[Rfam]
RNA: PyrD leader
RNA sequence: AUUCCCUUUCUGGGACGGAUAGCCGAUAAUAUCGCCCCGGUCUGCAACCGGGAAUCCAGGAGAGUCCAUGUAC
Numbered sequence: 001a002u003u004c005c006c007u008u009u010c011u012g013g014g015a016c017g018g019a020u021a022g023c024c025g026a027u028a029a030u031a032u033c034g035c036c037c038c039g040g041u042c043u044g045c046a047a048c049c050g051g052g053a054a055u056c057c058a059g060g061a062g063a064g065u066c067c068a069u070g071u072a073c
Base pairs, nucleotide, nucleotide: 036052037051038050039049040048041047